[Rfam]
RNA sequence: AGAAUUCCUACAGGAGCGACCUGAGAUCACAUGUGGCCACCCUCACAUAUUCCCUUAUCUUCUAUUGGUUGUUUUCGUGUGUUCUCAGGUCACCCCUGCCGGGCUUUC
Numbered sequence: 001a002g003a004a005u006u007c008c009u010a011c012a013g014g015a016g017c018g019a020c021c022u023g024a025g026a027u028c029a030c031a032u033g034u035g036g037c038c039a040c041c042c043u044c045a046c047a048u049a050u051u052c053c054c055u056u057a058u059c060u061u062c063u064a065u066u067g068g069u070u071g072u073u074u075u076c077g078u079g080u081g082u083u084c085u086c087a088g089g090u091c092a093c094c095c096c097u098g099c100c101g102g103g104c105u106u107u108c
Base pairs, nucleotide, nucleotide: 007102008101011098012097013096014095016093018091019090023086024085025084026083028081029080030079031078032077

MIR398 microRNA precursor family: a 108-nucleotide sequence from Hevea brasiliensis. For this family Rfam cites "Conservation and divergence of microRNAs and their functions in Euphorbiaceous plants" (Zeng et al., Nucleic Acids Res, 2010). NCBI's taxonomy places the organism under Eukaryota, Embryophyta, Euphyllophyta, Crotonoideae, Hevea.